This 211-nucleotide RNA sequence from Paenibacillus sp. FSL H7-0357 belongs to the Rfam family "Lysine riboswitch aptamer". The base pairs follow the family's consensus structure, which is taken from published work. The match comes from Rfam's covariance-model search (88 bits).

RNA sequence: AGAUGAGGUAGAGGUCGCGAAUAUUAAGAGUACGCGCGUGGAGACGUUAAAGAGCCGUCUGUGAAACGCCGCCGAAAGGAAUAUCCGCCGAAGUCUCUGCAGCCGCUCUUGUCAGCUGCAAGACUGGGGCCGUCGCCGAAAGGCACGGAACUGUCACAGUGCACCGCCGGUCAGAAACCGCGGGCCGCCACUGUGUUGCGCUAUCUUAACA
Numbered sequence: 001a002g003a004u005g006a007g008g009u010a011g012a013g014g015u016c017g018c019g020a021a022u023a024u025u026a027a028g029a030g031u032a033c034g035c036g037c038g039u040g041g042a043g044a045c046g047u048u049a050a051a052g053a054g055c056c057g058u059c060u061g062u063g064a065a066a067c068g069c070c071g072c073c074g075a076a077a078g079g080a081a082u083a084u085c086c087g088c089c090g091a092a093g094u095c096u097c098u099g100c101a102g103c104c105g106c107u108c109u110u111g112u113c114a115g116c117u118g119c120a121a122g123a124c125u126g127g128g129g130c131c132g133u134c135g136c137c138g139a140a141a142g143g144c145a146c147g148g149a150a151c152u153g154u155c156a157c158a159g160u161g162c163a164c165c166g167c168c169g170g171u172c173a174g175a176a177a178c179c180g181c182g183g184g185c186c187g188c189c190a191c192u193g194u195g196u197u198g199c200g201c202u203a204u205c206u207u208a209a210c211a
Base pairs, nucleotide, nucleotide: 006206007205008204009203010202011201017088018087019086021084022083023082024081025080034072035071036069037068038067039066092125093124094123095122096121098120099119100118101117102116103115126152127151130148131147132146133145136142155195156194157193158192159191160190
Gene Ontology term of the family: lysine biosynthetic process. The organism belongs to Paenibacillus, within Bacteria.